The family of this 169-nucleotide RNA is "Interferon gamma 5' UTR regulatory element". From the family's description: This family represents a pseudoknot containing stem-loop structure found in the 5' UTR of interferon (IFN) gamma mRNA. This structure is thought to be involved in translational regulation and the pseudoknot has been found to activate PKR which is known to be a translational inhibitor. Mutations in the pseudoknot structure have been found to reduce PKR activation and increase the translation of IFN-gamma. Rfam 15.1 lists 135 matches to the family in 125 species. Pairs were carried over by alignment from the consensus structure, which is taken from published work. Gene Ontology term of the family: positive regulation of translation.
RNA sequence: CAUUUUUCUGAUCAUCUGAAGAUCAGCUAUUGGAAGAGAAAGAUCAGCCAAGUCCUUUGGACCUGAUCAACUUGAUACGAGAACUACUGAUUUCAACUUCUUUGGCUGAGCUCUCUCCGAAACAAUGAAAUAUACAAGUUAUAUCUUGGCUUUUCAGCUCUGCGUCGUU
Numbered sequence: 001c002a003u004u005u006u007u008c009u010g011a012u013c014a015u016c017u018g019a020a021g022a023u024c025a026g027c028u029a030u031u032g033g034a035a036g037a038g039a040a041a042g043a044u045c046a047g048c049c050a051a052g053u054c055c056u057u058u059g060g061a062c063c064u065g066a067u068c069a070a071c072u073u074g075a076u077a078c079g080a081g082a083a084c085u086a087c088u089g090a091u092u093u094c095a096a097c098u099u100c101u102u103u104g105g106c107u108g109a110g111c112u113c114u115c116u117c118c119g120a121a122a123c124a125a126u127g128a129a130a131u132a133u134a135c136a137a138g139u140u141a142u143a144u145c146u147u148g149g150c151u152u153u154u155c156a157g158c159u160c161u162g163c164g165u166c167g168u169u
Base pairs, nucleotide, nucleotide: 009069010068011067012066013065014064015120016119018117019116020114021113022112025107026106027105028104029103032101033100034099035098036097041093042092043091044090045089046088047087051085052084053083056081057080058079059078121169122168123167125165126164127163130144131143132142133141134140148159149158150157151156